[Rfam]
RNA: mir-49 microRNA precursor family
Organism: Caenorhabditis brenneri
RNA sequence: CGCGGUUUUUUUGUGUAGUGCUCCGCACCAUCGAGUGUUCGAAGCACCACGAGAAGCUGCAGA
Numbered sequence: 001c002g003c004g005g006u007u008u009u010u011u012u013g014u015g016u017a018g019u020g021c022u023c024c025g026c027a028c029c030a031u032c033g034a035g036u037g038u039u040c041g042a043a044g045c046a047c048c049a050c051g052a053g054a055a056g057c058u059g060c061a062g063a
Stems, first nucleotide, its partner, number of pairs: 002060010013050003018047005024041002027038002